[Rfam]
RNA sequence: GCACCCACCUCAUUUUCGUUCCUCGCUGUGCAGUGCAGGGCUGGGGGCACUUGGUGCUACAGCACAGCAGUGAAAAUCCAGAUUUCCACUGAAAUCUUAGAGUGAUCUAAGAAGGUUGGGGAGGUAUUUUCAAUGAAGGGUACAAGGGUUUGGGCUCUGUUUUUUCUCAUGGGCUGUUCUUUGUUUACAUUUCUCCUCCACUGGUUUGGGACUCAUCUCUACACCUCUGCAACAGCA
Numbered sequence: 001g002c003a004c005c006c007a008c009c010u011c012a013u014u015u016u017c018g019u020u021c022c023u024c025g026c027u028g029u030g031c032a033g034u035g036c037a038g039g040g041c042u043g044g045g046g047g048c049a050c051u052u053g054g055u056g057c058u059a060c061a062g063c064a065c066a067g068c069a070g071u072g073a074a075a076a077u078c079c080a081g082a083u084u085u086c087c088a089c090u091g092a093a094a095u096c097u098u099a100g101a102g103u104g105a106u107c108u109a110a111g112a113a114g115g116u117u118g119g120g121g122a123g124g125u126a127u128u129u130u131c132a133a134u135g136a137a138g139g140g141u142a143c144a145a146g147g148g149u150u151u152g153g154g155c156u157c158u159g160u161u162u163u164u165u166c167u168c169a170u171g172g173g174c175u176g177u178u179c180u181u182u183g184u185u186u187a188c189a190u191u192u193c194u195c196c197u198c199c200a201c202u203g204g205u206u207u208g209g210g211a212c213u214c215a216u217c218u219c220u221a222c223a224c225c226u227c228u229g230c231a232a233c234a235g236c237a
Stems, first nucleotide, its partner, number of pairs: 001057005013047006021039002067230004072225001080218004086209003
RNA: Small nucleolar RNA SNORA55
Organism: Acrocephalus arundinaceus